SAM-I/IV (S-adenosyl methionine) riboswitch aptamer: a 116-nucleotide RNA.
Rfam links the family to the GO terms regulation of gene expression and S-adenosylmethionine metabolic process.
The literature on the family includes a 2008 paper in RNA by Weinberg et al., "The aptamer core of SAM-IV riboswitches mimics the ligand-binding site of SAM-I riboswitches".
The sequence is in the family's curated seed alignment.
RNA sequence: GUAGUACAUCACGAGCGACCAACAGGUCCGGCAACCGGGAUUUCCCACGGUGCCAUUUCGCGAAAUGCGAAAGAUGUGGCUACGCCAACAGGCGUAGCAACGGGCUGGCUCAGUUG
Numbered sequence: 001g002u003a004g005u006a007c008a009u010c011a012c013g014a015g016c017g018a019c020c021a022a023c024a025g026g027u028c029c030g031g032c033a034a035c036c037g038g039g040a041u042u043u044c045c046c047a048c049g050g051u052g053c054c055a056u057u058u059c060g061c062g063a064a065a066u067g068c069g070a071a072a073g074a075u076g077u078g079g080c081u082a083c084g085c086c087a088a089c090a091g092g093c094g095u096a097g098c099a100a101c102g103g104g105c106u107g108g109c110u111c112a113g114u115u116g
Stems, first nucleotide, its partner, number of pairs: 006077005015029001017028004030054003035050003038046002079098008